RNA sequence: GGGCUGGCUUUCGCUCAGCGGGUACUUCGAUUCAGGCUUCGCUUAAUAACCACUCUUGCUUGUGAGGGUGAUUCGAGACCCAUGGAUGCUCACCAGCCCUUUA
Numbered sequence: 001g002g003g004c005u006g007g008c009u010u011u012c013g014c015u016c017a018g019c020g021g022g023u024a025c026u027u028c029g030a031u032u033c034a035g036g037c038u039u040c041g042c043u044u045a046a047u048a049a050c051c052a053c054u055c056u057u058g059c060u061u062g063u064g065a066g067g068g069u070g071a072u073u074c075g076a077g078a079c080c081c082a083u084g085g086a087u088g089c090u091c092a093c094c095a096g097c098c099c100u101u102u103a
Stems, first nucleotide, its partner, number of pairs: 002098006013087001015085002018083001020081002026077005
This 103-nucleotide sequence from Phyllostomus discolor belongs to the Rfam family "Vault RNA". The source organism's lineage runs through Eukaryota, Deuterostomia, Tetrapoda, Mammalia and Phyllostomus.